This 295-nucleotide RNA from Coleophoma cylindrospora belongs to the Rfam family "A. fumigatus sRNA Afu_309". It scores 162 bits against the family's covariance model. It is annotated as a small RNA. The base pairs follow the family's consensus structure, which was predicted with WAR. The literature on the family includes a 2008 paper in Nucleic Acids Res by Jochl et al., "Small ncRNA transcriptome analysis from Aspergillus fumigatus suggests a novel mechanism for regulation of protein synthesis".
Nucleotides: 295
Stems, first nucleotide, its partner, number of pairs: 011147008019076003022072003026068004030062004035056002037051001039050004084139001086137001088135001091127003095123003159214002170202001171200001174199006180191002219288003222283005235272005242266003248258004
Number, partner (000 for none) and nucleotide at each position: 001000u002000u003000c004000a005000u006000c007000a008000c009000a010000c011147a012146g013145a014144u015143u016142u017141g018140u019076g020075c021074c022072c023071a024070a025000c026068g027067a028066u029065c030062c031061c032060u033059u034000c035056a036055u037051a038000c039050a040049c041048u042047g043000c044000u045000u046000g047042c048041a049040g050039u051037u052000g053000c054000u055036a056035u057000g058000c059033a060032a061031g062030g063000u064000u065029g066028a067027u068026u069000g070024u071023u072022g073000a074021g075020g076019c077000a078000g079000u080000u081000c082000g083000a084139u085000c086137g087000c088135c089000c090000a091127u092126g093125g094000a095123g096122c097121c098000a099000u100000c101000a102000a103000c104000c105000u106000u107000u108000a109000c110000a111000g112000g113000u114000a115000g116000a117000c118000c119000u120000u121097g122096g123095u124000g125093u126092c127091a128000a129000u130000c131000a132000u133000c134000c135088g136000a137086u138000c139084g140018a141017c142016a143015g144014a145013u146012c147011u148000c149000a150000g151000a152000g153000g154000a155000a156000u157000c158000g159214g160213u161000c162000c163000u164000u165000a166000c167000g168000a169000a170202g171200c172000u173000u174199g175198a176197g177196u178195u179194c180191g181190c182000u183000u184000u185000a186000a187000c188000c189000g190181g191180c192000u193000u194179g195178a196177a197176u198175u199174c200171g201000g202170u203000g204000a205000a206000c207000g208000a209000g210000u211000g212000c213160a214159c215000u216000g217000a218000a219288g220287g221286c222283g223282u224281c225280a226279u227000a228000u229000u230000c231000c232000a233000c234000u235272u236271c237270u238269c239268u240000u241000u242266a243265c244264c245000g246000a247000u248258g249257g250256c251255c252000g253000u254000u255251g256250g257249c258248u259000u260000g261000u262000g263000a264244g265243g266242u267000u268239g269238g270237g271236g272235a273000u274000a275000a276000a277000c278000c279226a280225u281224g282223a283222c284000a285000u286221g287220c288219c289000u290000a291000c292000a293000u294000a295000c